The record is a 71-nucleotide RNA from Hoylesella marshii, which matches "tRNA" in Rfam. Its family is annotated with triplet codon-amino acid adaptor activity in the Gene Ontology. Rfam classes the family as a transfer RNA. Taxonomically the source falls in Hoylesella marshii (Bacteria, Bacteroidia, Bacteroidales, Hoylesella).

[Rfam]
RNA sequence: GGUACCUUGGCCGAGCGGUUAGGUAACGGUCUGCAAAACCGUGUAGAGCAGUUCGACUCUGCUAGGUACCU
Numbered sequence: 001g002g003u004a005c006c007u008u009g010g011c012c013g014a015g016c017g018g019u020u021a022g023g024u025a026a027c028g029g030u031c032u033g034c035a036a037a038a039c040c041g042u043g044u045a046g047a048g049c050a051g052u053u054c055g056a057c058u059c060u061g062c063u064a065g066g067u068a069c070c071u
Base pairs, nucleotide, nucleotide: 001070002069003068004067005066006065007064010024011023012022026042027041028040029039030038047063048062049061050060051059